[Rfam]
RNA sequence: CACUCAGGGGAGGGUCCCUCAGCCUGGGUUGUGAGAGGGAACAGGCCAGGCUGAGGGACCCCACCGGUGCAGG
Numbered sequence: 001c002a003c004u005c006a007g008g009g010g011a012g013g014g015u016c017c018c019u020c021a022g023c024c025u026g027g028g029u030u031g032u033g034a035g036a037g038g039g040a041a042c043a044g045g046c047c048a049g050g051c052u053g054a055g056g057g058a059c060c061c062c063a064c065c066g067g068u069g070c071a072g073g
Stems, first nucleotide, its partner, number of pairs: 006068001008065002012061013026047002029044004